[Rfam]
Nucleotides: 037
Base pairs, nucleotide, nucleotide: 012033013032014029015028016027017026
Number, partner (000 for none) and nucleotide at each position: 001000c002000u003000g004000a005000g006000g007000a008000a009000c010000c011000c012033u013032g014029c015028c016027c017026c018000g019000c020000c021000a022000u023000g024000a025000a026017g027016g028015g029014g030000u031000u032013u033012g034000a035000a036000a037000c